The family of this 156-nucleotide RNA sequence from Thermoactinomyces daqus is "SAM riboswitch aptamer (S box leader)". It scores 67 bits against the family's covariance model.
RNA sequence: CUCUUAUCAAGAGCCGGUGGAGGGACAAGCCCGAUGAAACCCAGCAACCGACCGUAAUGCCAUCGUGAGAUGGGGCACCAGCAUACGUCUGGGGCCGCGGGAAAACCGCGCAAGGCACGGUGCUAAUUCUUGCCAGCGUAAGCUGAAAGAUGAGAG
Numbered sequence: 001c002u003c004u005u006a007u008c009a010a011g012a013g014c015c016g017g018u019g020g021a022g023g024g025a026c027a028a029g030c031c032c033g034a035u036g037a038a039a040c041c042c043a044g045c046a047a048c049c050g051a052c053c054g055u056a057a058u059g060c061c062a063u064c065g066u067g068a069g070a071u072g073g074g075g076c077a078c079c080a081g082c083a084u085a086c087g088u089c090u091g092g093g094g095c096c097g098c099g100g101g102a103a104a105a106c107c108g109c110g111c112a113a114g115g116c117a118c119g120g121u122g123c124u125a126a127u128u129c130u131u132g133c134c135a136g137c138g139u140a141a142g143c144u145g146a147a148a149g150a151u152g153a154g155a156g
Stems, first nucleotide, its partner, number of pairs: 001156008013042001016041003022032003026132004043124004048120002050116001052114001128148001134145004

Rfam describes the family as follows. The SAM riboswitch is found upstream of a number of genes which code for proteins involved in methionine or cysteine biosynthesis in Gram-positive bacteria.
NCBI's taxonomy places the organism under Bacteria, Bacillota, Caryophanales, Thermoactinomycetaceae, Thermoactinomyces.